Record summary
mir-454 microRNA precursor family: a 104-nucleotide RNA sequence from Leptobrachium leishanense. Gene Ontology terms of the family: RISC complex and miRNA-mediated post-transcriptional gene silencing. The source organism's lineage runs through Eukaryota, Chordata, Tetrapoda, Anura and Leptobrachium. A reference for the family is Chen et al. (2005), "The developmental miRNA profiles of zebrafish as determined by small RNA cloning", Genes Dev.
[Rfam]
RNA sequence: UGGGUCCAGCCUUAAGGAAGAGACCCUAUCAAUAUUGCCUCUGCUUUUGUGAACAGAGUAGUAGUAGUGCAAUAUUGCUUAUAGGGUCUUUUCCUUGAGAUACC
Numbered sequence: 001u002g003g004g005u006c007c008a009g010c011c012u013u014a015a016g017g018a019a020g021a022g023a024c025c026c027u028a029u030c031a032a033u034a035u036u037g038c039c040u041c042u043g044c045u046u047u048u049g050u051g052a053a054c055a056g057a058g059u060a061g062u063a064g065u066a067g068u069g070c071a072a073u074a075u076u077g078c079u080u081a082u083a084g085g086g087u088c089u090u091u092u093c094c095u096u097g098a099g100a101u102a103c104c
Base pairs, nucleotide, nucleotide: 020090021089022088023087024086025085026084027083028082029081030077031076032075033074034073035072036071037070038069041067042066043065044064045063